[Rfam]
RNA sequence: UGGGAGGCAGAUACCUGGACAGUCCAGAAGUGUGCGCUGUCUGUCACUGGUCCUCCCUAGAGAAUCCUUGCUCUCUGAUGACCGCGGCGAAUUGAGAGAAAUCGCCACGGACAGAUACGGAGCAGACACUG
Numbered sequence: 001u002g003g004g005a006g007g008c009a010g011a012u013a014c015c016u017g018g019a020c021a022g023u024c025c026a027g028a029a030g031u032g033u034g035c036g037c038u039g040u041c042u043g044u045c046a047c048u049g050g051u052c053c054u055c056c057c058u059a060g061a062g063a064a065u066c067c068u069u070g071c072u073c074u075c076u077g078a079u080g081a082c083c084g085c086g087g088c089g090a091a092u093u094g095a096g097a098g099a100a101a102u103c104g105c106c107a108c109g110g111a112c113a114g115a116u117a118c119g120g121a122g123c124a125g126a127c128a129c130u131g
Base pairs, nucleotide, nucleotide: 002057003056004055005054006053007052016043017042018041022037023036025034067125069124070123071122072121073120074119082110083109084108087105088104089103090102

The record is a 131-nucleotide sequence from Oryzias latipes, which matches "Small Cajal body specific RNA 8" in Rfam. Lineage of the source: Eukaryota > Bilateria > Vertebrata > Teleostei > Oryzias. The sequence is in the family's curated seed alignment. On this family, see Darzacq et al., EMBO J 2002: "Cajal body-specific small nuclear RNAs: a novel class of 2'-O-methylation and pseudouridylation guide RNAs". The base pairs follow the family's consensus structure, which is taken from published work. The family's RNA type in Rfam is small Cajal body RNA. Gene Ontology terms of the family: Cajal body, nucleolus and RNA processing. About the family: scaRNAs are a specific class of small nuclear RNAs which localise to the Cajal bodies and guide the modification of RNA polymerase II transcribed spliceosomal RNAs U1, U2, U4, U5 and U12. U92 belong to the H/ACA box class of guide RNAs as it has the predicted hairpin-hinge-hairpin-tail structure, conserved H/ACA-box motifs and is found associated with GAR1.